[Rfam]
RNA sequence: GAAAAAUGAUGAUAUUCUUACUGUAUCCUAUUGUUACAGUGAAGACCUCAGAUCCAACUCUGAUUUCACUCUGGUU
Number, nucleotide and partner (000 for none) at each position: 001g067002a066003a065004a064005a000006a000007u000008g000009a000010u000011g000012a000013u000014a000015u000016u000017c000018u000019u000020a000021c000022u000023g000024u000025a000026u000027c000028c000029u000030a000031u000032u000033g000034u000035u000036a000037c000038a000039g000040u000041g000042a000043a000044g000045a000046c000047c000048u000049c000050a000051g000052a000053u000054c000055c000056a000057a000058c000059u000060c000061u000062g000063a000064u004065u003066u002067c001068a000069c000070u000071c000072u000073g000074g000075u000076u000
RNA: Small nucleolar RNA SNORD19
Organism: Grallaria varia